[Rfam]
RNA: chrB-b RNA
RNA sequence: UCGGGUCCGUCGCAGGCACCCGGCCGUUACAAGGCAUUUCGCCCAAGCUCUGC
Dot-bracket structure: ((((((.....[[[[[.)))))).........(((.....))).....]]]]]